[Rfam]
RNA sequence: AUCAGCUAAUGAAGGCUUGUGUAUAAACCCACCCUGUGGGCUGGGCAGGUCUGAGCAUCUCUGAU
Numbered sequence: 001a002u003c004a005g006c007u008a009a010u011g012a013a014g015g016c017u018u019g020u021g022u023a024u025a026a027a028c029c030c031a032c033c034c035u036g037u038g039g040g041c042u043g044g045g046c047a048g049g050u051c052u053g054a055g056c057a058u059c060u061c062u063g064a065u
Stems, first nucleotide, its partner, number of pairs: 001065005014051007022043002029039003

Overview
The family of this 65-nucleotide sequence from Xenopus laevis is "Selenocysteine insertion sequence 1". The family's consensus secondary structure is taken from published work. About the family: The incorporation of selenocysteine into a protein sequence is directed by an in-frame UGA codon (usually a stop codon) within the coding region of the mRNA. Selenoprotein mRNAs contain a conserved secondary structure in the 3' UTR that is required for the distinction of UGA stop from UGA selenocysteine. The selenocysteine insertion sequence (SECIS) is around 60 nt in length and adopts a hairpin structure which is sufficiently well-defined and conserved to act as a computational screen for selenoprotein genes. Lineage of the source: Eukaryota > Bilateria > Pipidae > Xenopus > Xenopus.